[Rfam]
RNA sequence: UAGCUGUGAUGACUUCUUAGGACACCUUUGGAUAAAUCAUGAAAACAAAACAGAAUCACACCUGAGCUAA
Dot-bracket structure: ((((.............................................................)))).

The family of this 70-nucleotide RNA from Labrus bergylta is "Small nucleolar RNA SNORD58". Gene Ontology terms of the family: nucleolus and RNA processing. snoRNA U58 is found in introns 1, 3 and 6 of the ribosomal protein RPL17 gene in humans. Taxonomically the source falls in Labrus (Eukaryota, Deuterostomia, Neoteleostei, Ctenosquamata). It scores 63 bits against the family's covariance model. Rfam 15.1 lists 2,484 matches to the family in 680 species. It is annotated as a C/D-box small nucleolar RNA. The literature on the family includes a 2002 paper in Mol Cell Biol by Galardi et al., "Purified box C/D snoRNPs are able to reproduce site-specific 2'-O-methylation of target RNA in vitro". Clan: SNORD58 clan.